Shown here is a 98-nucleotide sequence from Streptococcus hyointestinalis, a member of the family "23S methyl RNA motif". By type it is a cis-regulatory element. Gene Ontology term of the family: regulation of gene expression. The match comes from Rfam's covariance-model search (88 bits). The organism belongs to Streptococcus, within Bacteria. On this family, see Weinberg et al., Nucleic Acids Res 2007: "Identification of 22 candidate structured RNAs in bacteria using the CMfinder comparative genomics pipeline".

[Rfam]
RNA sequence: GAUUCGUUGUUUUAAAUCAAACCUGUUAUGAUUUAAGGUAGCGAGCAACCACAACCACAUUGUUUGCUGAGCUUGACUCCGGGCAAUGUGGUUUUUAU
Numbered sequence: 001g002a003u004u005c006g007u008u009g010u011u012u013u014a015a016a017u018c019a020a021a022c023c024u025g026u027u028a029u030g031a032u033u034u035a036a037g038g039u040a041g042c043g044a045g046c047a048a049c050c051a052c053a054a055c056c057a058c059a060u061u062g063u064u065u066g067c068u069g070a071g072c073u074u075g076a077c078u079c080c081g082g083g084c085a086a087u088g089u090g091g092u093u094u095u096u097a098u
Base pairs, nucleotide, nucleotide: 003045004044005043006042007041008040009039010038011037012036013035014034015033016032017031018030019029053093054092055091056090057089058088059087060086061085062084063083064082065081066080069079070078071077